Annotation:
A member of the RNA family "MIR2655 microRNA precursor family" from Trifolium subterraneum, 252 nucleotides long. It scores 138 bits against the family's covariance model. Its family is annotated with RISC complex and miRNA-mediated post-transcriptional gene silencing in the Gene Ontology.

[Rfam]
RNA sequence: CCCUUAUCUUUUAAAAGUUUCAAGUUGGUCCCUAAUCUUUAUUUUAGGUUUCAAGUUGGUCCCUUCCGUCAAUUUUUUAACUAUUUCCGUUAAAUUUGGACACGUGGCAAACUAAUUUGGACACGUGGCAUACUUGGACAGAUGAUACGUGUCCAAUUUUAACAGUAACGGUAAAAAAAUUGACGGAAGGGACCAAUUUGAAACCUAAAAUAAAGAUAAGAGACCAACUUGAAACUUUUAAAAGAUAAGGGA
Numbered sequence: 001c002c003c004u005u006a007u008c009u010u011u012u013a014a015a016a017g018u019u020u021c022a023a024g025u026u027g028g029u030c031c032c033u034a035a036u037c038u039u040u041a042u043u044u045u046a047g048g049u050u051u052c053a054a055g056u057u058g059g060u061c062c063c064u065u066c067c068g069u070c071a072a073u074u075u076u077u078u079a080a081c082u083a084u085u086u087c088c089g090u091u092a093a094a095u096u097u098g099g100a101c102a103c104g105u106g107g108c109a110a111a112c113u114a115a116u117u118u119g120g121a122c123a124c125g126u127g128g129c130a131u132a133c134u135u136g137g138a139c140a141g142a143u144g145a146u147a148c149g150u151g152u153c154c155a156a157u158u159u160u161a162a163c164a165g166u167a168a169c170g171g172u173a174a175a176a177a178a179a180u181u182g183a184c185g186g187a188a189g190g191g192a193c194c195a196a197u198u199u200g201a202a203a204c205c206u207a208a209a210a211u212a213a214a215g216a217u218a219a220g221a222g223a224c225c226a227a228c229u230u231g232a233a234a235c236u237u238u239u240a241a242a243a244g245a246u247a248a249g250g251g252a
Base pairs, nucleotide, nucleotide: 002250003249004248005247006246007245008244023229024228025227027225028224029223032220033219035217036216037215038214039213040212041211042210043209045207046206047205